The family of this 196-nucleotide sequence is "RgsA sRNA".
Rfam describes the family as follows. This small RNA (sRNA) was computationally identified in the genome of the opportunistic pathogen Pseudomonas aeruginosa and its expression verified by northern blot analysis. P16 sRNA appears to be conserved across several Pseudomonas species and Azotobacter vinelandii.
RNA sequence: CAGCAGCCGUGGCGGUAUUCCAAAUACGUUUAAGAAACCGCCGCGACCAAUCUGGACGAUGGGAAAUCCUGGCCAAUACUCAGAAGACUGGUGUGCGGCAUCUCCCCCCAAGUGCCCCCCAGUCGAGGUACCGUGGAUCGUGUACCUUCGUUUUACUCCUAAUGGUCUUGACCCGGAUUCAUCCCCCAGAACCCGG
Numbered sequence: 001c002a003g004c005a006g007c008c009g010u011g012g013c014g015g016u017a018u019u020c021c022a023a024a025u026a027c028g029u030u031u032a033a034g035a036a037a038c039c040g041c042c043g044c045g046a047c048c049a050a051u052c053u054g055g056a057c058g059a060u061g062g063g064a065a066a067u068c069c070u071g072g073c074c075a076a077u078a079c080u081c082a083g084a085a086g087a088c089u090g091g092u093g094u095g096c097g098g099c100a101u102c103u104c105c106c107c108c109c110a111a112g113u114g115c116c117c118c119c120c121a122g123u124c125g126a127g128g129u130a131c132c133g134u135g136g137a138u139c140g141u142g143u144a145c146c147u148u149c150g151u152u153u154u155a156c157u158c159c160u161a162a163u164g165g166u167c168u169u170g171a172c173c174c175g176g177a178u179u180c181a182u183c184c185c186c187c188a189g190a191a192c193c194c195g196g
Stems, first nucleotide, its partner, number of pairs: 040166004087123004095118001097116001099114003125148007132140001173196004178191003
A search with the family's covariance model found it, with a score of 157 bits.